The record is an 84-nucleotide sequence from Theropithecus gelada, which matches "mir-548 microRNA precursor family" in Rfam.

RNA sequence: UAUUGGGUCGGUGCAAAAGUGAUUGUGGUUUUUGCCAUUAAAAGUAGUAGCAAAAACCCCAAUUACUUUUGCACCGACCUAAUA
Numbered sequence: 001u002a003u004u005g006g007g008u009c010g011g012u013g014c015a016a017a018a019g020u021g022a023u024u025g026u027g028g029u030u031u032u033u034g035c036c037a038u039u040a041a042a043a044g045u046a047g048u049a050g051c052a053a054a055a056a057c058c059c060c061a062a063u064u065a066c067u068u069u070u071g072c073a074c075c076g077a078c079c080u081a082a083u084a
Stems, first nucleotide, its partner, number of pairs: 001084025027058009037048004

A reference for the family is Jima et al. (2010), "Deep sequencing of the small RNA transcriptome of normal and malignant human B cells identifies hundreds of novel microRNAs", Blood. Gene Ontology terms of the family: RISC complex and miRNA-mediated post-transcriptional gene silencing.